[Rfam]
Nucleotides: 097
Stems, first nucleotide, its partner, number of pairs: 006092003010088004019040003042077003045073002049071003056064001
Number, partner (000 for none) and nucleotide at each position: 001000u002000g003000a004000u005000c006092c007091c008090g009000u010088g011087c012086g013085g014000g015000a016000g017000a018000g019040u020039c021038c022000a023000c024000g025000u026000c027000g028000u029000u030000c031000g032000c033000g034000g035000c036000g037000c038021g039020g040019a041000c042077g043076c044075c045073g046072a047000a048000g049071g050070a051069g052000c053000a054000a055000a056064u057000c058000c059000u060000c061000c062000c063000c064056g065000g066000a067000a068000a069051c070050u071049c072046u073045c074000a075044g076043g077042c078000a079000c080000a081000c082000g083000u084000a085013c086012c087011g088010c089000u090008c091007g092006g093000a094000c095000g096000a097000g

Rfam assigns this 97-nucleotide RNA sequence from Streptomyces benahoarensis to the family "Glycine riboswitch aptamer". The base pairs follow the family's consensus structure. A search with the family's covariance model found it, with a score of 59 bits.